[Rfam]
Notes:
Shown here is a 46-nucleotide sequence from Fimbriiglobus ruber, a member of the family "Acido-Lenti-1 RNA". Rfam classes the family as a small RNA. A search with the family's covariance model found it, with a score of 45 bits.

RNA sequence: CCCAGGGCUCACGACCUGGGCUAAUCUCUGCCGCCCCUUCGGCGCU
Numbered sequence: 001c002c003c004a005g006g007g008c009u010c011a012c013g014a015c016c017u018g019g020g021c022u023a024a025u026c027u028c029u030g031c032c033g034c035c036c037c038u039u040c041g042g043c044g045c046u
Stems, first nucleotide, its partner, number of pairs: 001020006008013001033045002036042002